[Rfam]
Nucleotides: 233
Base pairs, nucleotide, nucleotide: 001145002144003143004142005141014133015132016131017130026122027121028120030119031118032117036052037051038050039049040048053104054103055102056101057100058099059098146158147157148156149155
Number, partner (000 for none) and nucleotide at each position: 001145g002144a003143u004142u005141c006000u007000g008000a009000a010000u011000c012000c013000g014133u015132u016131g017130u018000g019000a020000a021000a022000u023000a024000g025000u026122c027121a028120u029000u030119u031118u032117g033000g034000a035000c036052u037051g038050g039049g040048g041000g042000g043000c044000g045000g046000u047000a048040c049039c050038c051037c052036a053104c054103a055102g056101c057100u058099c059098c060000a061000c062000c063000a064000u065000u066000u067000u068000c069000a070000a071000a072000u073000g074000u075000g076000a077000u078000g079000a080000a081000u082000g083000g084000u085000c086000g087000c088000a089000u090000u091000u092000g093000a094000a095000u096000a097000u098059g099058g100057g101056g102055c103054u104053g105000a106000c107000a108000u109000a110000g111000a112000u113000u114000c115000g116000a117032c118031a119030g120028g121027u122026g123000a124000u125000g126000a127000a128000a129000g130017a131016c132015a133014a134000a135000u136000u137000g138000g139000g140000u141005g142004a143003a144002u145001c146158c147157g148156a149155c150000a151000u152000g153000g154000c155149g156148u157147c158146g159000u160000u161000a162000a163000a164000a165000g166000c167000c168000g169000a170000c171000u172000a173000a174000a175000a176000a177000c178000u179000g180000a181000a182000u183000g184000g185000c186000g187000a188000u189000a190000g191000a192000a193000u194000c195000g196000c197000u198000g199000c200000g201000a202000a203000c204000g205000a206000c207000a208000a209000u210000g211000u212000u213000c214000g215000c216000u217000u218000u219000g220000c221000a222000a223000u224000g225000g226000c227000u228000g229000c230000c231000u232000a233000a

Rfam assigns this 233-nucleotide RNA from an Alphaproteobacteria bacterium to the family "permuted transfer-messenger RNA".
Rfam classes the family as a non-coding RNA gene.
Gene Ontology term of the family: RNA catabolic process.
The base pairs follow the family's consensus structure, which is taken from published work.
The sequence is in the family's curated seed alignment.